This 135-nucleotide RNA from Klebsiella indica belongs to the Rfam family "Enterobacteria sRNA STnc130". The base pairs follow the family's consensus structure, which was predicted with WAR. A search with the family's covariance model found it, with a score of 82 bits.
[Rfam]
RNA sequence: UAUAACGAAAUCAGACUUUAUUGGUUAUUUAUGCUGGUUAAUCCAAAGGGAGUAUCUGCGUAUUCACUACGUUGAUUAUUGCCUGAUAUCAAGAAGGGGAUAAAAAAAAGCGCCCGGAGGCGCUUUUGAGAAGAG
Numbered sequence: 001u002a003u004a005a006c007g008a009a010a011u012c013a014g015a016c017u018u019u020a021u022u023g024g025u026u027a028u029u030u031a032u033g034c035u036g037g038u039u040a041a042u043c044c045a046a047a048g049g050g051a052g053u054a055u056c057u058g059c060g061u062a063u064u065c066a067c068u069a070c071g072u073u074g075a076u077u078a079u080u081g082c083c084u085g086a087u088a089u090c091a092a093g094a095a096g097g098g099g100a101u102a103a104a105a106a107a108a109a110g111c112g113c114c115c116g117g118a119g120g121c122g123c124u125u126u127u128g129a130g131a132a133g134a135g
Stems, first nucleotide, its partner, number of pairs: 060067001106126002109124006